A member of the RNA family "Photosynthesis regulatory RNA1" from Nostoc sp. PCC 7107, 81 nucleotides long. NCBI's taxonomy places the organism under Bacteria, Bacillati, Nostocales, Nostocaceae, Nostoc. The family's consensus secondary structure was predicted with CMfinder. Rfam's curators write: Formerly known as Syr1 discovered in Synechocystis sp PCC 6803, is a regulatory factor controlling photosynthetic functions. PsrR1 interacts with the ribosome binding regions of several photosynthesis-related mRNAs. In particular, psaL mRNA is processed by RNase E only in the presence of PsrR1. It is annotated as a small RNA. Its family is annotated with regulation of translation and regulation of photosynthesis in the Gene Ontology. It scores 64 bits against the family's covariance model. On this family, see Georg et al., Plant Cell 2014: "The small regulatory RNA SyR1/PsrR1 controls photosynthetic functions in cyanobacteria".
[Rfam]
RNA sequence: GCUAAGAUUUUUUAACUUCGGUAUCUCCCAUCGACAUUUAGACCUUCUCCUUUGACCCUGGUUAGUUUCGCCGGGGUUUUU
Numbered sequence: 001g002c003u004a005a006g007a008u009u010u011u012u013u014a015a016c017u018u019c020g021g022u023a024u025c026u027c028c029c030a031u032c033g034a035c036a037u038u039u040a041g042a043c044c045u046u047c048u049c050c051u052u053u054g055a056c057c058c059u060g061g062u063u064a065g066u067u068u069c070g071c072c073g074g075g076g077u078u079u080u081u
Stems, first nucleotide, its partner, number of pairs: 055077008